[Rfam]
RNA sequence: CCCGCCACCAAGGGGAGCCCGGCAAAGGGCUGAGAAACCGCUCGCACGCGCAGCGCGGUGACCCUUCGAACCUGAUCCGGAUCAUGCCGGCGAAGGGAUGGGAUUAGCGCCUGCC
Numbered sequence: 001c002c003c004g005c006c007a008c009c010a011a012g013g014g015g016a017g018c019c020c021g022g023c024a025a026a027g028g029g030c031u032g033a034g035a036a037a038c039c040g041c042u043c044g045c046a047c048g049c050g051c052a053g054c055g056c057g058g059u060g061a062c063c064c065u066u067c068g069a070a071c072c073u074g075a076u077c078c079g080g081a082u083c084a085u086g087c088c089g090g091c092g093a094a095g096g097g098a099u100g101g102g103a104u105u106a107g108c109g110c111c112u113g114c115c
Stems, first nucleotide, its partner, number of pairs: 008101003011065004017030004037059005071096003077090004
TPP riboswitch aptamer (THI element): a 115-nucleotide RNA from Pseudomonas sp. SDI.
The organism belongs to Pseudomonas, within Bacteria.
The base pairs follow the family's consensus structure, which is taken from published work.